[Rfam]
RNA: M-box riboswitch aptamer (ykoK leader)
Organism: Skermania sp. ID1734
Nucleotides: 171
Stems, first nucleotide, its partner, number of pairs: 005167005011158001013097001015153003020147003025143008039115005045075005055066004082106004088100003117131003
Number, partner (000 for none) and nucleotide at each position: 001000u002000c003000a004000g005167c006166a007165c008164c009163u010000c011158g012000g013097u014000a015153g016152g017151u018000g019000a020147g021146g022145u023000u024000c025143c026142u027141g028140c029139g030138c031137g032136a033000a034000c035000a036000c037000a038000g039115g040114c041113c042112a043111c044000u045075g046074a047073u048072c049071u050000g051000a052000c053000g054000a055066c056065g057064u058063c059000g060000a061000g062000a063058g064057a065056c066055g067000c068000c069000c070000a071049a072048g073047g074046u075045c076000a077000g078000g079000a080000c081000a082106g083105g084104u085103c086000u087000u088100c089099c090098c091000g092000g093000a094000u095000u096000a097013a098090g099089g100088g101000a102000u103085g104084a105083c106082c107000c108000a109000a110000a111043g112042u113041g114040g115039c116000u117131a118130c119129c120000c121000g122000g123000a124000c125000a126000a127000c128000g129119g130118g131117u132000u133000a134000c135000g136032u137031c138030g139029c140028g141027c142026a143025g144000u145022g146021c147020c148000a149000a150000a151017g152016c153015u154000c155000u156000g157000a158011c159000g160000a161000g162000a163009g164008g165007g166006u167005g168000c169000g170000c171000u